This 33-nucleotide RNA sequence belongs to the Rfam family "L31-Firmicutes ribosomal protein leader". The literature on the family includes a 2020 paper in BMC Microbiol by Eckert and Weinberg, "Discovery of 20 novel ribosomal leader candidates in bacteria and archaea". Rfam classes the family as a cis-regulatory leader.
[Rfam]
RNA sequence: CUUUGUAGUGAGAAAUCUACAAGGCGGAAGGAG
Numbered sequence: 001c002u003u004u005g006u007a008g009u010g011a012g013a014a015a016u017c018u019a020c021a022a023g024g025c026g027g028a029a030g031g032a033g
Stems, first nucleotide, its partner, number of pairs: 001024008